[Rfam]
RNA sequence: GUUGCUUCUUAUGGUGAACUCUCUUUUAAUUCAAAUAAGUGAUGUUCUAGUUUCCGAAGCAUAUAUAAAUAUUUAAUAGCCAGUUUUAAACAGCGUUGUGUAAUUUUAUUUAACUUACACUUUGCUACCUGUCUGCUGGUACAAAC
Numbered sequence: 001g002u003u004g005c006u007u008c009u010u011a012u013g014g015u016g017a018a019c020u021c022u023c024u025u026u027u028a029a030u031u032c033a034a035a036u037a038a039g040u041g042a043u044g045u046u047c048u049a050g051u052u053u054c055c056g057a058a059g060c061a062u063a064u065a066u067a068a069a070u071a072u073u074u075a076a077u078a079g080c081c082a083g084u085u086u087u088a089a090a091c092a093g094c095g096u097u098g099u100g101u102a103a104u105u106u107u108a109u110u111u112a113a114c115u116u117a118c119a120c121u122u123u124g125c126u127a128c129c130u131g132u133c134u135g136c137u138g139g140u141a142c143a144a145a146c
Stems, first nucleotide, its partner, number of pairs: 003061006016047004020042002023039002079140006092126003098120003